Shown here is a 67-nucleotide RNA sequence from Danaus chrysippus, a member of the family "mir-33 microRNA precursor family".
[Rfam]
RNA sequence: CGGGAGUGCAUUGUAGUUGCAUUGCACCUGUUACAUAUUGUGCAAUAUCACUACAAGGCAAUUCUCG
Number, nucleotide and partner (000 for none) at each position: 001c067002g066003g065004g064005a000006g063007u060008g059009c058010a000011u056012u055013g054014u053015a052016g051017u000018u000019g048020c000021a046022u045023u044024g043025c042026a041027c040028c000029u000030g000031u000032u000033a000034c000035a000036u000037a000038u000039u000040g027041u026042g025043c024044a023045a022046u021047a000048u019049c000050a000051c016052u015053a014054c013055a012056a011057g000058g009059c008060a007061a000062u000063u006064c004065u003066c002067g001

The family's consensus secondary structure was predicted with PFOLD.
On this family, see Ahn et al., Mol Hum Reprod 2010: "MicroRNA transcriptome in the newborn mouse ovaries determined by massive parallel sequencing".